This 90-nucleotide sequence from Eucalyptus grandis belongs to the Rfam family "Small nucleolar RNA snoR27". Its Rfam clan is "snR68 clan". The match comes from Rfam's covariance-model search (56 bits). NCBI's taxonomy places the organism under Eukaryota, Viridiplantae, Tracheophyta, Mesangiospermae, Eucalyptus. The base pairs follow the family's consensus structure, which was predicted with WAR. For this family Rfam cites "Multiple snoRNA gene clusters from Arabidopsis" (Brown et al., RNA, 2001).
[Rfam]
Nucleotides: 090
Base pairs, nucleotide, nucleotide: 002089004087005086006085007084
Number, partner (000 for none) and nucleotide at each position: 001000g002089g003000a004087g005086g006085a007084u008000c009000g010000a011000u012000g013000a014000u015000g016000u017000a018000a019000u020000u021000a022000a023000u024000u025000a026000c027000u028000g029000c030000g031000u032000u033000a034000u035000c036000u037000a038000u039000c040000u041000g042000c043000a044000g045000c046000u047000u048000c049000c050000c051000c052000c053000c054000g055000u056000g057000g058000g059000a060000g061000u062000g063000a064000a065000g066000a067000a068000a069000u070000c071000g072000a073000u074000a075000c076000a077000c078000g079000c080000u081000g082000a083000g084007a085006u086005c087004c088000c089002c090000a